A member of the RNA family "SAH (S-adenosyl-L-homocysteine) riboswitch aptamer" from Candidatus Burkholderia verschuerenii, 138 nucleotides long.
RNA sequence: GUUUCCGAGGAGCGUUGCGACGGGCAAUCUGAAAGCCGCCCGCCAGGCUCGGAGACAUUCAAUCCGGACGGUUCGAACGCGCUUUUAGUUAUGAAAGGCGCUCGCUGAGCCACCGCAUUCGAACGGCGCUCACGUCAA
Numbered sequence: 001g002u003u004u005c006c007g008a009g010g011a012g013c014g015u016u017g018c019g020a021c022g023g024g025c026a027a028u029c030u031g032a033a034a035g036c037c038g039c040c041c042g043c044c045a046g047g048c049u050c051g052g053a054g055a056c057a058u059u060c061a062a063u064c065c066g067g068a069c070g071g072u073u074c075g076a077a078c079g080c081g082c083u084u085u086u087a088g089u090u091a092u093g094a095a096a097g098g099c100g101c102u103c104g105c106u107g108a109g110c111c112a113c114c115g116c117a118u119u120c121g122a123a124c125g126g127c128g129c130u131c132a133c134g135u136c137a138a
Base pairs, nucleotide, nucleotide: 002055003054004053005052006051007050008049021042022041023040024039025038
The base pairs follow the family's consensus structure, which is taken from published work.